[Rfam]
RNA sequence: CCCUUAUCUUUUAAAAGUUUCAAGUUGGUCCCUUAUCUUUAUUUUAGGUUUCAAGUUGGUCCAUCCCGUCAAUUUUUUUACUAUUUCCGUUAAGUUUUGACACGUGGCAAACUAAUUUGGACACGUGAUCCACUUGGACAGAUGACACGUGUCCAAAUUUAACGGUAAUAGUAAAACAAUUGACGGGAGGGAUCAACUUGAAACCUAAAAUAAAGAUAAGGGACCAACUUGAAACUUUUAAAAUAUAAGGGA
Numbered sequence: 001c002c003c004u005u006a007u008c009u010u011u012u013a014a015a016a017g018u019u020u021c022a023a024g025u026u027g028g029u030c031c032c033u034u035a036u037c038u039u040u041a042u043u044u045u046a047g048g049u050u051u052c053a054a055g056u057u058g059g060u061c062c063a064u065c066c067c068g069u070c071a072a073u074u075u076u077u078u079u080a081c082u083a084u085u086u087c088c089g090u091u092a093a094g095u096u097u098u099g100a101c102a103c104g105u106g107g108c109a110a111a112c113u114a115a116u117u118u119g120g121a122c123a124c125g126u127g128a129u130c131c132a133c134u135u136g137g138a139c140a141g142a143u144g145a146c147a148c149g150u151g152u153c154c155a156a157a158u159u160u161a162a163c164g165g166u167a168a169u170a171g172u173a174a175a176a177c178a179a180u181u182g183a184c185g186g187g188a189g190g191g192a193u194c195a196a197c198u199u200g201a202a203a204c205c206u207a208a209a210a211u212a213a214a215g216a217u218a219a220g221g222g223a224c225c226a227a228c229u230u231g232a233a234a235c236u237u238u239u240a241a242a243a244u245a246u247a248a249g250g251g252a
Stems, first nucleotide, its partner, number of pairs: 002250006023229003027225003031221013045207003
Rfam assigns this 252-nucleotide sequence from Trifolium subterraneum to the family "MIR2655 microRNA precursor family". Gene Ontology terms of the family: miRNA-mediated post-transcriptional gene silencing and RISC complex. Pairs were carried over by alignment from the consensus structure, which was predicted with RNAalifold.